[Rfam]
RNA sequence: GUUUAUCUCAGAGGAGUGAAUCUGAGAACACAAGGCUGAUUUCCACUGCCAUAUGAUAUAUGUUAUAAGGUGAAUUUACUUUGUGUUCUCAGGUCACCCCUUUGAGCCAACC
Numbered sequence: 001g002u003u004u005a006u007c008u009c010a011g012a013g014g015a016g017u018g019a020a021u022c023u024g025a026g027a028a029c030a031c032a033a034g035g036c037u038g039a040u041u042u043c044c045a046c047u048g049c050c051a052u053a054u055g056a057u058a059u060a061u062g063u064u065a066u067a068a069g070g071u072g073a074a075u076u077u078a079c080u081u082u083g084u085g086u087u088c089u090c091a092g093g094u095c096a097c098c099c100c101u102u103u104g105a106g107c108c109a110a111c112c
Base pairs, nucleotide, nucleotide: 007106008105011102012101013100014099016097017096018095019094024090025089026088027087028086029085030084031083032082033081

A member of the RNA family "MIR398 microRNA precursor family" from Cajanus cajan, 112 nucleotides long.
Pairs were carried over by alignment from the consensus structure, which was predicted with WAR.
Taxonomically the source falls in Cajanus (Eukaryota, Streptophyta, Embryophyta, Papilionoideae).
The match comes from Rfam's covariance-model search (80 bits).
The literature on the family includes a 2010 paper in Nucleic Acids Res by Zeng et al., "Conservation and divergence of microRNAs and their functions in Euphorbiaceous plants".